[Rfam]
RNA sequence: UCCAGGCAGCAGCACAGAAGUAAGGGUGAAAUGGUAUGGUAUUACCACCCUUACUUCUGCGCUGCUGCUGGCAGAG
Numbered sequence: 001u002c003c004a005g006g007c008a009g010c011a012g013c014a015c016a017g018a019a020g021u022a023a024g025g026g027u028g029a030a031a032u033g034g035u036a037u038g039g040u041a042u043u044a045c046c047a048c049c050c051u052u053a054c055u056u057c058u059g060c061g062c063u064g065c066u067g068c069u070g071g072c073a074g075a076g
Stems, first nucleotide, its partner, number of pairs: 001076001003074001005072001007070001008066006015059001017056001019055008
Shown here is a 76-nucleotide RNA from Chrysemys picta, a member of the family "mir-16 microRNA precursor family". Its Rfam clan is "mir-15 clan". A search with the family's covariance model found it, with a score of 37 bits. The family's consensus secondary structure was predicted with PFOLD.